[Rfam]
RNA: COG3860 RNA
Organism: Gemmobacter aquatilis
RNA sequence: GGGUCCGCAGUUCACCCAGGCGUCACCAGCCGCACGGCCAGCUAAACCUGCCC
Number, nucleotide and partner (000 for none) at each position: 001g017002g016003g015004u014005c000006c000007g000008c000009a000010g000011u000012u000013c000014a004015c003016c002017c001018a000019g000020g000021c000022g000023u000024c000025a000026c000027c000028a000029g038030c037031c036032g000033c000034a000035c000036g031037g030038c029039c000040a000041g000042c000043u000044a000045a000046a000047c000048c000049u000050g000051c000052c000053c000